A member of the RNA family "Interferon gamma 5' UTR regulatory element" from Diceros bicornis, 169 nucleotides long. Rfam describes the family as follows. This family represents a pseudoknot containing stem-loop structure found in the 5' UTR of interferon (IFN) gamma mRNA. This structure is thought to be involved in translational regulation and the pseudoknot has been found to activate PKR which is known to be a translational inhibitor. Mutations in the pseudoknot structure have been found to reduce PKR activation and increase the translation of IFN-gamma. Rfam links the family to the GO term positive regulation of translation. NCBI's taxonomy places the organism under Eukaryota, Tetrapoda, Theria, Diceros, Diceros bicornis. The literature on the family includes a 2002 paper in Cell by Ben-Asouli et al., "Human interferon-gamma mRNA autoregulates its translation through a pseudoknot that activates the interferon-inducible protein kinase PKR". The match comes from Rfam's covariance-model search (155 bits).
[Rfam]
RNA sequence: CACUCUUCUGAUCGUCGGCAGAUCAGCUAUUAGAAAAGAAAGAUCAGCUAAGUCCUUGGGACCUGAUCAGCUUAAGACAGGAGCUACCGAUUUCAACUGCGUUGGCCUAACUCUCUCCGAAACAAUGAAUUAUACAAGUUUUAUCUUAGCUUUUCAGCUUUGCGUGAUU
Numbered sequence: 001c002a003c004u005c006u007u008c009u010g011a012u013c014g015u016c017g018g019c020a021g022a023u024c025a026g027c028u029a030u031u032a033g034a035a036a037a038g039a040a041a042g043a044u045c046a047g048c049u050a051a052g053u054c055c056u057u058g059g060g061a062c063c064u065g066a067u068c069a070g071c072u073u074a075a076g077a078c079a080g081g082a083g084c085u086a087c088c089g090a091u092u093u094c095a096a097c098u099g100c101g102u103u104g105g106c107c108u109a110a111c112u113c114u115c116u117c118c119g120a121a122a123c124a125a126u127g128a129a130u131u132a133u134a135c136a137a138g139u140u141u142u143a144u145c146u147u148a149g150c151u152u153u154u155c156a157g158c159u160u161u162g163c164g165u166g167a168u169u
Stems, first nucleotide, its partner, number of pairs: 008070007015120004020114003026106004033100001035098001041093005047087001051085003056081002059078001121169002125165003131143002134140001148159004